[Rfam]
RNA sequence: GGACGGCUCCCGCUGAAUCCGCCAUCGCGGAACCGGGGACCCACCGCACCACUGGGGUGAAUCGACGCAUCCCCAAUGCGCCGUAGGGCAGCUUCCACGCCCGAACCCGUCAGCUAACCCGGUAAGCGGCAUGGAAGCGAAGGA
Number, nucleotide and partner (000 for none) at each position: 001g000002g000003a000004c000005g000006g000007c000008u000009c000010c000011c128012g127013c126014u125015g000016a000017a000018u031019c030020c029021g000022c000023c000024a000025u000026c000027g000028c000029g020030g019031a018032a123033c122034c121035g120036g119037g118038g000039a000040c000041c000042c054043a053044c000045c000046g000047c000048a000049c000050c000051a000052c000053u043054g042055g108056g107057g106058u000059g000060a000061a000062u000063c083064g082065a000066c080067g079068c078069a000070u000071c000072c000073c000074c000075a000076a000077u000078g068079c067080g066081c000082c064083g063084u000085a000086g102087g101088g100089c099090a000091g000092c000093u000094u000095c000096c000097a000098c000099g089100c088101c087102c086103g000104a000105a000106c057107c056108c055109g000110u000111c000112a000113g000114c000115u000116a000117a000118c037119c036120c035121g034122g033123u032124a000125a014126g013127c012128g011129g000130c000131a000132u000133g000134g000135a000136a000137g000138c000139g000140a000141a000142g000143g000144a000
c-di-AMP riboswitch aptamer (ydaO/yuaA leader): a 144-nucleotide RNA from Actinoallomurus bryophytorum. NCBI's taxonomy places the organism under Bacteria, Bacillati, Actinomycetota, Streptosporangiales, Actinoallomurus. This family represents a conserved RNA structure found upstream of the ydaO and yuaA genes in Bacillus subtilis and related genes in other bacteria.